[Rfam]
Nucleotides: 068
Base pairs, nucleotide, nucleotide: 012048013047014046015045016044017043025039027037028036029035053068054067055066056065057064
Number, partner (000 for none) and nucleotide at each position: 001000u002000c003000a004000a005000a006000u007000g008000g009000a010000a011000g012048g013047c014046a015045a016044u017043c018000u019000a020000a021000g022000u023000u024000c025039g026000c027037c028036g029035c030000g031000u032000u033000c034000u035029g036028c037027g038000a039025c040000a041000a042000c043017g044016a045015u046014u047013g048012c049000a050000u051000g052000a053068c054067c055066u056065a057064c058000a059000u060000c061000c062000c063000u064057g065056u066055g067054g068053g

This 68-nucleotide sequence from Psychrobacillus sp. FJAT-21963 belongs to the Rfam family "Bacillaceae-1 RNA". A search with the family's covariance model found it, with a score of 55 bits. The family's RNA type in Rfam is small RNA. The source organism's lineage runs through Bacteria, Bacillati, Bacillota, Bacilli and Psychrobacillus.